Shown here is an 82-nucleotide sequence from Coptis chinensis, a member of the family "Small nucleolar RNA Z159/U59". The organism belongs to Coptis, within Eukaryota. Its Rfam clan is "SNORD59 clan". On this family, see Chen et al., Nucleic Acids Res 2003: "The high diversity of snoRNAs in plants: identification and comparative study of 120 snoRNA genes from Oryza sativa". The family's consensus secondary structure was predicted with PFOLD.

RNA sequence: GUCUCUAAUAAUGAUCAAAACAAUACUUUCGUUCUUCCGAGAUAAUAUAUCGCGGAAACUUUUGGAGACUGAAUGAAGAGAC
Numbered sequence: 001g002u003c004u005c006u007a008a009u010a011a012u013g014a015u016c017a018a019a020a021c022a023a024u025a026c027u028u029u030c031g032u033u034c035u036u037c038c039g040a041g042a043u044a045a046u047a048u049a050u051c052g053c054g055g056a057a058a059c060u061u062u063u064g065g066a067g068a069c070u071g072a073a074u075g076a077a078g079a080g081a082c
Stems, first nucleotide, its partner, number of pairs: 003080004